Rfam assigns this 85-nucleotide RNA sequence from Trachelium caeruleum to the family "Plastid-rps12 3UTR RNA". Rfam classes the family as a cis-regulatory element. Rfam 15.1 lists 1,710 matches to the family in 1,426 species. Rfam's curators put it in the seed alignment. Plastid rpl20 is a non-coding RNA (ncRNA) recognised in plastids. It was found in the three prime untranslated region (3UTR) of rps12 gene, its 3UTR location sugest a role in transcript maduration. The base pairs follow the family's consensus structure, which was predicted with LocARNA.

[Rfam]
RNA sequence: GGUUUCCAUUGGUGUAAAUCCAAUCAAAAAAAAUUAAAGAAUUCUCCAUUGGUAGCAAAUGGUUAUCCAUUAAGCGGAGGAAAUC
Numbered sequence: 001g002g003u004u005u006c007c008a009u010u011g012g013u014g015u016a017a018a019u020c021c022a023a024u025c026a027a028a029a030a031a032a033a034u035u036a037a038a039g040a041a042u043u044c045u046c047c048a049u050u051g052g053u054a055g056c057a058a059a060u061g062g063u064u065a066u067c068c069a070u071u072a073a074g075c076g077g078a079g080g081a082a083a084u085c
Stems, first nucleotide, its partner, number of pairs: 009023004044079004048070002051067006